[Rfam]
RNA sequence: CGUCCUUUUCUUGGCGGGGACCGGGCAUGCGGUCCCAGACCCCGGUUAUGUAUGGAGGCAGAGAGAGAGGGUCCGGCCCCCGUGGCGUCAUGUCUUCGGUGCCGGCGGCUUCCCGUCUCCCGGUCCUAUCCUCAGUCACCGGGACAGGG
Numbered sequence: 001c002g003u004c005c006u007u008u009u010c011u012u013g014g015c016g017g018g019g020a021c022c023g024g025g026c027a028u029g030c031g032g033u034c035c036c037a038g039a040c041c042c043c044g045g046u047u048a049u050g051u052a053u054g055g056a057g058g059c060a061g062a063g064a065g066a067g068a069g070g071g072u073c074c075g076g077c078c079c080c081c082g083u084g085g086c087g088u089c090a091u092g093u094c095u096u097c098g099g100u101g102c103c104g105g106c107g108g109c110u111u112c113c114c115g116u117c118u119c120c121c122g123g124u125c126c127u128a129u130c131c132u133c134a135g136u137c138a139c140c141g142g143g144a145c146a147g148g149g
Stems, first nucleotide, its partner, number of pairs: 001058001003056003015044005023036003083141003087137001102123004107118002

The family of this 149-nucleotide sequence from Dasypus novemcinctus is "Small nucleolar RNA SNORA57". The base pairs follow the family's consensus structure, which was predicted with PFOLD. Its family is annotated with RNA processing and nucleolus in the Gene Ontology.